[Rfam]
RNA sequence: UGUCUCCUCCACCCUCAAAAGUGGAUUCAGCCCCGAGUUGCAAAACUCGGGGUUUUUUUC
Numbered sequence: 001u002g003u004c005u006c007c008u009c010c011a012c013c014c015u016c017a018a019a020a021g022u023g024g025a026u027u028c029a030g031c032c033c034c035g036a037g038u039u040g041c042a043a044a045a046c047u048c049g050g051g052g053u054u055u056u057u058u059u060c
Base pairs, nucleotide, nucleotide: 008025009024010023011022012021030053031052032051033050034049035048036047037046

Shown here is a 60-nucleotide sequence from Limnohabitans sp. B9-3, a member of the family "Betaproteobacteria toxic small RNA". The family's consensus secondary structure was predicted with WAR. Rfam 15.1 lists 951 matches to the family in 508 species. Overexpression in amino aid rich medium attenuates growth, suggesting role in repressing amino acid intake and metabolism. On this family, see Sass et al., Sci Rep 2017: "Identification of small RNAs abundant in Burkholderia cenocepacia biofilms reveal putative regulators with a potential role in carbon and iron metabolism".